[Rfam]
Record summary:
The record is a 172-nucleotide RNA sequence from Lentibacillus amyloliquefaciens, which matches "glmS glucosamine-6-phosphate activated ribozyme aptamer" in Rfam. About the family: This entry contains a glucosamine-6-phosphate activated ribozyme that is found in the mRNA for GlmS. GlmS is an enzyme that uses fructose-6-phosphate and glutamine to generate glucosamine-6-phosphate. The ribozyme catalyses self cleavage of the glmS mRNA that is thought to regulate GlmS activity. NCBI's taxonomy places the organism under Bacteria, Bacillati, Bacillota, Caryophanales, Lentibacillus. Rfam classes the family as a riboswitch.
RNA sequence: AACGAACGAAUAGCGCCUGAACUAUUUUCUGACCGGUAAUGAAAAUAGUUGACGAGGAGGAGGUUAUCGAACGCAAUCGGCGGAUACCUCCCGGCUGCACAUCUCAGUCGUGAUGCUUUUUUCCAAAAACAGUGAGGCGACUUGCUGCACAAAGGAUAAAGCCAGAUGAUUG
Numbered sequence: 001a002a003c004g005a006a007c008g009a010a011u012a013g014c015g016c017c018u019g020a021a022c023u024a025u026u027u028u029c030u031g032a033c034c035g036g037u038a039a040u041g042a043a044a045a046u047a048g049u050u051g052a053c054g055a056g057g058a059g060g061a062g063g064u065u066a067u068c069g070a071a072c073g074c075a076a077u078c079g080g081c082g083g084a085u086a087c088c089u090c091c092c093g094g095c096u097g098c099a100c101a102u103c104u105c106a107g108u109c110g111u112g113a114u115g116c117u118u119u120u121u122u123c124c125a126a127a128a129a130c131a132g133u134g135a136g137g138c139g140a141c142u143u144g145c146u147g148c149a150c151a152a153a154g155g156a157u158a159a160a161g162c163c164a165g166a167u168g169a170u171u172g
Stems, first nucleotide, its partner, number of pairs: 020050008029041001059091005067080004092110006115162005121156001130147007